[Rfam]
RNA sequence: CAACCCAUGCAGCAAUGUAUGGCUGAAUCUUGAGAAGUUAGCAGAGGUCAUAAUACUCAUUGGAAGAUGAGGAAGGAC
Numbered sequence: 001c002a003a004c005c006c007a008u009g010c011a012g013c014a015a016u017g018u019a020u021g022g023c024u025g026a027a028u029c030u031u032g033a034g035a036a037g038u039u040a041g042c043a044g045a046g047g048u049c050a051u052a053a054u055a056c057u058c059a060u061u062g063g064a065a066g067a068u069g070a071g072g073a074a075g076g077a078c
Base pairs, nucleotide, nucleotide: 001025002024005022006021007020008019009018010017011016038045039044047078048077049076056071057070058069059068060067061066
RNA: Group II catalytic intron D1-D4-1
Organism: Petrotoga mobilis